[Rfam]
RNA: c-di-AMP riboswitch aptamer (ydaO/yuaA leader)
Organism: Nonomuraea glycinis
RNA sequence: GUACGGGACGCGCCCAAUCCCCGCAGGGGAGCCGGGGAACCACCAGGGGUGCCGCACGGCACCACCAGGGGUGAAUCCGAGCUUUUGGCUCGGUAGGGCUGCUUCCGGCCCGAACCCGUCAGCUAACCCGGUAGGCGUCGAUGGAAGGAGCU
Number, nucleotide and partner (000 for none) at each position: 001g000002u000003a000004c000005g000006g000007g000008a000009c000010g000011c137012g136013c135014c134015c000016a000017a000018u030019c029020c028021c000022c000023g000024c000025a000026g000027g000028g020029g019030a018031g132032c131033c130034g129035g128036g127037g000038a000039a000040c000041c068042a000043c000044c000045a000046g000047g000048g000049g000050u000051g000052c000053c000054g000055c000056a000057c000058g000059g000060c000061a000062c000063c000064a000065c000066c000067a000068g041069g117070g116071g115072u000073g000074a000075a000076u000077c093078c092079g091080a090081g000082c000083u000084u000085u000086u000087g000088g000089c000090u080091c079092g078093g077094u000095a000096g111097g110098g109099c108100u000101g000102c000103u000104u000105c000106c000107g000108g099109c098110c097111c096112g000113a000114a000115c071116c070117c069118g000119u000120c000121a000122g000123c000124u000125a000126a000127c036128c035129c034130g033131g032132u031133a000134g014135g013136c012137g011138u000139c000140g000141a000142u000143g000144g000145a000146a000147g000148g000149a000150g000151c000152u000